[Rfam]
The family of this 382-nucleotide RNA from Halomonas urumqiensis is "transfer-messenger RNA". Bacterial tmRNA, also known as 10Sa RNA or SsrA, is named for its dual tRNA and mRNA-like properties. Rfam classes the family as a non-coding RNA gene. It scores 200 bits against the family's covariance model. The source organism's lineage runs through Bacteria, Gammaproteobacteria, Oceanospirillales, Halomonadaceae and Halomonas.

Nucleotides: 382
Base pairs, nucleotide, nucleotide: 001378002377003376004375005374006373007372020351021350022349023348024347025346026345027344033338034337036335039333040332041331043326044325045324046323047322048067049066050065051064052063054083055082056081057080058079059078060077124147125146126145127144128143129142130141131140132139150199151198152197153196154195159192160191161190162189166185167184168183169182174213175212176211179209219245230260231259232258233257234256264299265298266297267296268295270293271292272291273290275288276287277286279318280317283312284311285310355371356370357369358368359367
Number, partner (000 for none) and nucleotide at each position: 001378g002377g003376g004375g005374g006373c007372g008000a009000c010000a011000u012000g013000g014000c015000u016000u017000c018000g019000a020351c021350g022349c023348c024347g025346g026345u027344g028000a029000c030000a031000a032000a033338c034337c035000u036335u037000g038000c039333g040332g041331u042000g043326c044325a045324u046323g047322c048067c049066g050065a051064g052063a053000g054083c055082g056081u057080g058079a059078u060077g061000u062000a063052u064051c065050u066049c067048g068000u069000a070000a071000a072000u073000c074000c075000a076000a077060c078059a079058u080057c081056a082055c083054g084000a085000c086000u087000a088000a089000a090000u091000a092000g093000u094000c095000g096000c097000a098000a099000a100000c101000g102000a103000c104000g105000a106000c107000a108000a109000c110000u111000a112000c113000g114000c115000u116000c117000a118000g119000g120000g121000c122000g123000c124147g125146c126145u127144g128143g129142c130141a131140g132139c133000u134000u135000a136000a137000a138000c139132g140131c141130u142129g143128u144127u145126a146125g147124c148000u149000u150199c151198u152197u153196g154195u155000c156000c157000g158000g159192c160191c161190c162189g163000a164000a165000c166185g167184c168183g169182a170000u171000g172000u173000g174213c175212c176211c177000a178000u179209u180000c181000a182169u183168c184167g185166c186000c187000g188000a189162c190161g191160g192159g193000a194000u195154a196153u197152g198151a199150g200000c201000c202000a203000a204000g205000a206000c207000u208000g209179a210000u211176g212175g213174g214000a215000u216000c217000g218000c219245g220000g221000c222000u223000g224000g225000u226000g227000g228000u229000g230260u231259c232258c233257u234256c235000u236000c237000g238000c239000c240000a241000a242000u243000c244000g245219c246000u247000a248000a249000a250000c251000u252000u253000g254000a255000c256234g257233a258232g259231g260230a261000a262000u263000c264299g265298c266297g267296c268295u269000u270293c271292u272291g273290g274000a275288u276287c277286c278000u279318g280317a281000c282000c283312g284311u285310c286277g287276g288275a289000g290273c291272c292271a293270g294000c295268g296267g297266c298265g299264u300000u301000a302000a303000a304000u305000c306000a307000a308000a309000c310285g311284a312283c313000g314000g315000a316000a317280u318279c319000u320000a321000a322047g323046c324045a325044u326043g327000u328000a329000g330000a331041g332040c333039c334000a335036a336000u337034g338033g339000g340000c341000g342000a343000g344027u345026g346025c347024c348023g349022g350021c351020g352000g353000a354000c355371g356370c357369g358368g359367g360000u361000u362000c363000g364000a365000u366000c367359c368358c369357c370356g371355c372007c373006g374005c375004c376003u377002c378001c379000a380000c381000c382000a